The family of this 79-nucleotide RNA from Crocodylus porosus is "Mammalian CPEB3 ribozyme".
Pairs were carried over by alignment from the consensus structure, which is taken from published work.
RNA sequence: AGAGGUCAAAAGUUUGAGACCACAGCAUAAGUGCUCAUGGCGCAGCCUGUCAGAUUCCAAUGAAUCUGUGAAUUCUGCU
Numbered sequence: 001a002g003a004g005g006u007c008a009a010a011a012g013u014u015u016g017a018g019a020c021c022a023c024a025g026c027a028u029a030a031g032u033g034c035u036c037a038u039g040g041c042g043c044a045g046c047c048u049g050u051c052a053g054a055u056u057c058c059a060a061u062g063a064a065u066c067u068g069u070g071a072a073u074u075c076u077g078c079u
Stems, first nucleotide, its partner, number of pairs: 018047001020045001024079004029074002031043003051068007